[Rfam]
RNA sequence: AUGUAGUGUGACAUGCUCGUUUGGGAAUUACUCUGAUGCAUGUUUAUUUAUUAUUAAAUUGAUUUUGGAUAACGAUGUGUUACACUUGU
Numbered sequence: 001a002u003g004u005a006g007u008g009u010g011a012c013a014u015g016c017u018c019g020u021u022u023g024g025g026a027a028u029u030a031c032u033c034u035g036a037u038g039c040a041u042g043u044u045u046a047u048u049u050a051u052u053a054u055u056a057a058a059u060u061g062a063u064u065u066u067g068g069a070u071a072a073c074g075a076u077g078u079g080u081u082a083c084a085c086u087u088g089u
Stems, first nucleotide, its partner, number of pairs: 005086010017075005
Shown here is an 89-nucleotide RNA sequence from Medicago truncatula, a member of the family "MIR2617 microRNA precursor family".
Pairs were carried over by alignment from the consensus structure, which was predicted with RNAalifold.
Rfam links the family to the GO terms RISC complex and miRNA-mediated post-transcriptional gene silencing.
A search with the family's covariance model found it, with a score of 60 bits.
Lineage of the source: Eukaryota > Streptophytina > Magnoliopsida > eudicotyledons > Medicago.